[Rfam]
Shown here is a 100-nucleotide RNA sequence from Allobosea sp. LC85, a member of the family "Glycine riboswitch aptamer". For this family Rfam cites "In Vivo Behavior of the Tandem Glycine Riboswitch in Bacillus subtilis" (Babina et al., MBio, 2017). Lineage of the source: Bacteria > Pseudomonadota > Alphaproteobacteria > Hyphomicrobiales > Allobosea. Gene Ontology term of the family: glycine biosynthetic process. About the family: This family represents the bacterial glycine riboswitch.
RNA sequence: AUCAUCCCCGCGGGAGAGACCGGGCCCGGACUUGUCCAGGCCCGGCGCCGAAGGCGCAACCGCCCCGGAAACGCUCAGGCAAACGGACCGCGUGGGAAUU
Numbered sequence: 001a002u003c004a005u006c007c008c009c010g011c012g013g014g015a016g017a018g019a020c021c022g023g024g025c026c027c028g029g030a031c032u033u034g035u036c037c038a039g040g041c042c043c044g045g046c047g048c049c050g051a052a053g054g055c056g057c058a059a060c061c062g063c064c065c066c067g068g069a070a071a072c073g074c075u076c077a078g079g080c081a082a083a084c085g086g087a088c089c090g091c092g093u094g095g096g097a098a099u100u
Stems, first nucleotide, its partner, number of pairs: 006095002009092005020045007047080003050076002054074003060068002